[Rfam]
Nucleotides: 132
Base pairs, nucleotide, nucleotide: 003038004037005036006035007033012030013029014028015027016026047096049094050093051092052091055086056085057084061080062079064078065077066076097131098130099129100127101126102125103124104123105122106121107120108119109118110117
Number, partner (000 for none) and nucleotide at each position: 001000a002000g003038c004037g005036u006035c007033g008000g009000g010000c011000c012030g013029c014028g015027c016026g017000c018000u019000c020000c021000u022000g023000a024000a025000g026016c027015g028014c029013g030012c031000g032000c033007c034000u035006g036005g037004c038003g039000a040000a041000c042000a043000a044000a045000u046000c047096g048000u049094g050093c051092u052091u053000c054000u055086g056085a057084g058000c059000g060000c061080u062079g063000a064078c065077c066076a067000c068000g069000g070000a071000u072000g073000u074000a075000c076066u077065g078064g079062c080061a081000g082000c083000a084057c085056u086055c087000a088000u089000c090000g091052a092051g093050g094049c095000a096047c097131a098130u099129g100127g101126g102125a103124a104123a105122g106121g107120c108119c109118g110117g111000g112000c113000u114000c115000g116000c117110c118109c119108g120107g121106c122105c123104u124103u125102u126101u127100u128000g129099c130098a131097u132000u
This 132-nucleotide RNA from Stappia indica belongs to the Rfam family "Alphaproteobacterial sRNA ar35". A search with the family's covariance model found it, with a score of 46 bits. The family has 13 seed sequences and 266 matches in Rfam 15.1. The base pairs follow the family's consensus structure. A reference for the family is del Val et al. (2012), "A survey of sRNA families in alpha-proteobacteria", RNA Biol.